[Rfam]
This 85-nucleotide RNA sequence from an Alteromonadaceae bacterium belongs to the Rfam family "c-di-GMP-I riboswitch aptamer".
The organism belongs to Alteromonadaceae, within Bacteria.
Rfam's curators write: GEMM was predicted in a large-scale screen for bacterial structured RNA regulatory elements.

RNA sequence: AUAUGAAAAAGGCACUCCUUACCGAAAGGUAGGUUACGCAAAGCCUCCGGUCUACGUCGACAGAUAAGAUAGCGGGGUUACCGAA
Numbered sequence: 001a002u003a004u005g006a007a008a009a010a011g012g013c014a015c016u017c018c019u020u021a022c023c024g025a026a027a028g029g030u031a032g033g034u035u036a037c038g039c040a041a042a043g044c045c046u047c048c049g050g051u052c053u054a055c056g057u058c059g060a061c062a063g064a065u066a067a068g069a070u071a072g073c074g075g076g077g078u079u080a081c082c083g084a085a
Base pairs, nucleotide, nucleotide: 012039013038017033018032020031021030022029023028042079043078044077045076047075048074049073050070051069052068057064058063